[Rfam]
RNA sequence: UCUGUGGCUAGGCCGGGGGGUUAGGCGUCCCCUGUAACCCGAAAUCGCCUUAUGCGGGGGCCGAAAACUUGGGGGCGGCAUGGAUCUUUUCUAUCCAUCCCCAAGUCCUAUAAUGAUAUUUCGUCCUGUGGGGUAAGACGGUGGAGGGGCCUACUUCGGAGGAAGUAGGUAACCUCCUUUACCUACCGAACCCCGUCAGGCCCGGAAGGGAGCAGCGGUAGGUAGGACGUCGACGCUCACAGGGGAGCGGAAUGGAGUAGGACUUGGGGGCAAUGGGUAGAAGAGAUCCAUGUCCACCCCAAGGAAGCCACACC
Numbered sequence: 001u002c003u004g005u006g007g008c009u010a011g012g013c014c015g016g017g018g019g020g021u022u023a024g025g026c027g028u029c030c031c032c033u034g035u036a037a038c039c040c041g042a043a044a045u046c047g048c049c050u051u052a053u054g055c056g057g058g059g060g061c062c063g064a065a066a067a068c069u070u071g072g073g074g075g076c077g078g079c080a081u082g083g084a085u086c087u088u089u090u091c092u093a094u095c096c097a098u099c100c101c102c103a104a105g106u107c108c109u110a111u112a113a114u115g116a117u118a119u120u121u122c123g124u125c126c127u128g129u130g131g132g133g134u135a136a137g138a139c140g141g142u143g144g145a146g147g148g149g150c151c152u153a154c155u156u157c158g159g160a161g162g163a164a165g166u167a168g169g170u171a172a173c174c175u176c177c178u179u180u181a182c183c184u185a186c187c188g189a190a191c192c193c194c195g196u197c198a199g200g201c202c203c204g205g206a207a208g209g210g211a212g213c214a215g216c217g218g219u220a221g222g223u224a225g226g227a228c229g230u231c232g233a234c235g236c237u238c239a240c241a242g243g244g245g246a247g248c249g250g251a252a253u254g255g256a257g258u259a260g261g262a263c264u265u266g267g268g269g270g271c272a273a274u275g276g277g278u279a280g281a282a283g284a285g286a287u288c289c290a291u292g293u294c295c296a297c298c299c300c301a302a303g304g305a306a307g308c309c310a311c312a313c314c
Base pairs, nucleotide, nucleotide: 003312004311005310006309007308008307009306011062012061013060014059015033016032017031018030019029020028021027038058039057040056041055043053068303069302070301071300072299073298074297077294078293079292080291082288083287086285087284088283089282090281091280092279093278094277095276096275097274098270099269100268101267102266103265104264105263106262107261108260109259110258111257117254118253119252120251121250122249123248124247125243126242127241128240129239130238131237132236133234134233137231138230139229140228141179143177144176145175146174147173149170150169151168152167153166154165155164156163157162182226183225184224185223186222187221193218194217195216196215201210202209203208
Notes: A member of the RNA family "Archaeal signal recognition particle RNA" from Methanofervidicoccus abyssi, 314 nucleotides long. Lineage of the source: Archaea > Methanobacteriota > Methanococci > Methanococcales > Methanofervidicoccus. The literature on the family includes a 2002 paper in Curr Opin Struct Biol by Wild et al., "Towards the structure of the mammalian signal recognition particle".